RNA sequence: GAGCAUCAUUUAGAAUCUCUUGGAUGAGAUAGCAACCAGCGAUAACAAGCAACGGUGCUAAAGCAAUGAGCCUUCUUUAAGGAAAAAAAUGUUAACCU
Numbered sequence: 001g002a003g004c005a006u007c008a009u010u011u012a013g014a015a016u017c018u019c020u021u022g023g024a025u026g027a028g029a030u031a032g033c034a035a036c037c038a039g040c041g042a043u044a045a046c047a048a049g050c051a052a053c054g055g056u057g058c059u060a061a062a063g064c065a066a067u068g069a070g071c072c073u074u075c076u077u078u079a080a081g082g083a084a085a086a087a088a089a090u091g092u093u094a095a096c097c098u
Stems, first nucleotide, its partner, number of pairs: 006069005015030005031059003036055002039050002043094005071082004
Overview:
The family of this 98-nucleotide sequence from Christiangramia fulva is "SAM-I/IV (S-adenosyl methionine) riboswitch aptamer". Lineage of the source: Bacteria > Pseudomonadati > Bacteroidota > Flavobacteriales > Christiangramia. The family has 417 seed sequences and 567 matches in Rfam 15.1. The family is grouped with related families in Rfam's "SAM clan". A reference for the family is Trausch et al. (2014), "Structural basis for diversity in the SAM clan of riboswitches", PNAS.